[Rfam]
RNA: Bacterial large subunit ribosomal RNA, nucleotides 1336 to 1735
Organism: Candidatus Gracilibacteria bacterium GN02-873
RNA sequence: GUAAUGGAGGUGAAAACCCUCCACACCGAAUACCCAAGGUUUCCUGUCCUACGUCAGUCGUGGCAGGGUUAGUCGGUCCUAAGGUGCACCCGAAAGGGGCAAGCCGAUGGAUAUCUGGUUAAUAUUCCAGAACUAUAUACAAGAGGUUAUUACCUAUGUGGGGACGCAUCGCGAAUAUCGGACACUCUCAUGGAUAUGAGUGAAGAGUAAUGCUUUUGGUUGUGUAGGCAAAUCCGCACAACAAUACAAGAGGGUUAUGAUUCCUUACCCAAUACUUCUUCGGAAGGGAUAAGUAAGGUCCUGUGAUAUGAAGGUGCCAAGAAAAGCCACUCUGGGACGAAUGUAUAUAACCGUACCGUAAUCGAACACUCGUGGGUGGAUGUGAGUACAUUAAGGUGGA
Numbered sequence: 001g002u003a004a005u006g007g008a009g010g011u012g013a014a015a016a017c018c019c020u021c022c023a024c025a026c027c028g029a030a031u032a033c034c035c036a037a038g039g040u041u042u043c044c045u046g047u048c049c050u051a052c053g054u055c056a057g058u059c060g061u062g063g064c065a066g067g068g069u070u071a072g073u074c075g076g077u078c079c080u081a082a083g084g085u086g087c088a089c090c091c092g093a094a095a096g097g098g099g100c101a102a103g104c105c106g107a108u109g110g111a112u113a114u115c116u117g118g119u120u121a122a123u124a125u126u127c128c129a130g131a132a133c134u135a136u137a138u139a140c141a142a143g144a145g146g147u148u149a150u151u152a153c154c155u156a157u158g159u160g161g162g163g164a165c166g167c168a169u170c171g172c173g174a175a176u177a178u179c180g181g182a183c184a185c186u187c188u189c190a191u192g193g194a195u196a197u198g199a200g201u202g203a204a205g206a207g208u209a210a211u212g213c214u215u216u217u218g219g220u221u222g223u224g225u226a227g228g229c230a231a232a233u234c235c236g237c238a239c240a241a242c243a244a245u246a247c248a249a250g251a252g253g254g255u256u257a258u259g260a261u262u263c264c265u266u267a268c269c270c271a272a273u274a275c276u277u278c279u280u281c282g283g284a285a286g287g288g289a290u291a292a293g294u295a296a297g298g299u300c301c302u303g304u305g306a307u308a309u310g311a312a313g314g315u316g317c318c319a320a321g322a323a324a325a326g327c328c329a330c331u332c333u334g335g336g337a338c339g340a341a342u343g344u345a346u347a348u349a350a351c352c353g354u355a356c357c358g359u360a361a362u363c364g365a366a367c368a369c370u371c372g373u374g375g376g377u378g379g380a381u382g383u384g385a386g387u388a389c390a391u392u393a394a395g396g397u398g399g400a
Base pairs, nucleotide, nucleotide: 005023006022007021008020009019010018024398025397026396027395032377033376034375035374038357039356043067044066045065046064047063048062052060053059074353075352076351077350078110079109083105084104085103089098090097091096114131115130116129117128118127134349135348136347137346138345139344140343141342153335154334158330159329160328161327166317167316168315169314172310173309177304178303180301181300183202184201185200186199187198204262205261208257209256210255211254215250216249217248219242220241221240222239223238224237225236227235228234264297265296266295267294268293363372364371379392380391381390382389